[Rfam]
RNA sequence: AGCGAAUGAUGAAUUGUAUUGGUCUCGUUCGGCGUAAUGGCAUUCAUUGCCUUGCCGACAACCAUACUACAUCACCACCCAUAGCCUGAUGCU
Number, nucleotide and partner (000 for none) at each position: 001a093002g092003c091004g090005a000006a000007u000008g000009a000010u000011g000012a000013a000014u000015u000016g000017u000018a000019u000020u000021g000022g000023u000024c000025u000026c000027g000028u000029u000030c000031g000032g000033c000034g000035u000036a000037a000038u000039g000040g000041c000042a053043u000044u000045c000046a000047u000048u000049g000050c000051c000052u000053u042054g000055c000056c000057g000058a000059c000060a000061a000062c000063c000064a000065u000066a000067c000068u000069a000070c000071a000072u000073c000074a000075c000076c000077a000078c000079c000080c000081a000082u000083a000084g000085c000086c000087u000088g000089a000090u004091g003092c002093u001
The family of this 93-nucleotide sequence from Closterium sp. NIES-68 is "Small nucleolar RNA Z43". It scores 65 bits against the family's covariance model. The family's RNA type in Rfam is C/D-box small nucleolar RNA. NCBI's taxonomy places the organism under Eukaryota, Viridiplantae, Streptophyta, Zygnematophyceae, Closterium peracerosum-strigosum-littorale complex.